[Rfam]
RNA sequence: GCGAGGAACACGCCCAAUCUCCGCAAGGAGAGCCGGGGAACCGCAGGUGGUCCAGAGCCGCCAUUGGGGUGAAUCCGAGUCAAUCGGUAGGGCUGCUCCGGCCCGAACCCGUCAGCUAACCCGGUAGGCGUCGAUGAGAGGAGCU
Dot-bracket structure: ..........((((...(((........)))((((((....((.....................))(((.....((((.....))))..((((.......))))...))).........)))))).))))...............
RNA: c-di-AMP riboswitch aptamer (ydaO/yuaA leader)
Organism: Nonomuraea solani